[Rfam]
RNA sequence: UCAUCACCACCAUUUUUCCUGAUUCUUUCGGGCAGUUGGUGUGUUCGGAAGAAAAUUCCGAGCGAGUUUGAAUUUCACCCUAUUUUGACCCCUCGGAAACCAAAAUUCCGAGGGGUUUUCUUU
Dot-bracket structure: .......(((((.(...(((((.....)))))..).))..)))(((((((.....)))))))........................((((((((((((.......))))))))))))......
Numbered sequence: 001u002c003a004u005c006a007c008c009a010c011c012a013u014u015u016u017u018c019c020u021g022a023u024u025c026u027u028u029c030g031g032g033c034a035g036u037u038g039g040u041g042u043g044u045u046c047g048g049a050a051g052a053a054a055a056u057u058c059c060g061a062g063c064g065a066g067u068u069u070g071a072a073u074u075u076c077a078c079c080c081u082a083u084u085u086u087g088a089c090c091c092c093u094c095g096g097a098a099a100c101c102a103a104a105a106u107u108c109c110g111a112g113g114g115g116u117u118u119u120c121u122u123u
Stems, first nucleotide, its partner, number of pairs: 008043003011038002014035001018032005044062007087117012

Histidine operon leader: a 123-nucleotide RNA sequence from Moraxella cuniculi. Pairs were carried over by alignment from the consensus structure, which is taken from published work. The organism belongs to Moraxella cuniculi, within Bacteria. Rfam's curators write: At least 6 amino acid operons are known to be regulated by attenuation. In each a leader sequence of 150-200 bp is found upstream of the first gene in the operon. By type it is a cis-regulatory leader. Rfam links the family to the GO term histidine biosynthetic process.